The record is a 183-nucleotide sequence from Triticum urartu, which matches "Small nucleolar RNA Z112" in Rfam. Lineage of the source: Eukaryota > Streptophytina > Embryophyta > Triticeae > Triticum. Clan: SNORD49 clan. The base pairs follow the family's consensus structure, which was predicted with PFOLD. Rfam links the family to the GO terms RNA processing and nucleolus.

[Rfam]
RNA sequence: AUCCCAGUGAAGAUUCUAAGACCAUAGAAAGUGUUGUAUGACACUGAUAGCAACAACUGCUUCUCUCCACUGCAAGUGUCCUCCUUCGGCCCUAACCUUUGUGGUUUGGUCUGGUCUGGAAUCUCCAUUUGCACCUGGUUUGGAUCAUCUGUGUUUGUGAUUUUAACCUGGUCUCUGAGUGGU
Numbered sequence: 001a002u003c004c005c006a007g008u009g010a011a012g013a014u015u016c017u018a019a020g021a022c023c024a025u026a027g028a029a030a031g032u033g034u035u036g037u038a039u040g041a042c043a044c045u046g047a048u049a050g051c052a053a054c055a056a057c058u059g060c061u062u063c064u065c066u067c068c069a070c071u072g073c074a075a076g077u078g079u080c081c082u083c084c085u086u087c088g089g090c091c092c093u094a095a096c097c098u099u100u101g102u103g104g105u106u107u108g109g110u111c112u113g114g115u116c117u118g119g120a121a122u123c124u125c126c127a128u129u130u131g132c133a134c135c136u137g138g139u140u141u142g143g144a145u146c147a148u149c150u151g152u153g154u155u156u157g158u159g160a161u162u163u164u165a166a167c168c169u170g171g172u173c174u175c176u177g178a179g180u181g182g183u
Stems, first nucleotide, its partner, number of pairs: 001183003005179001071133008079120003084114001088111004094106004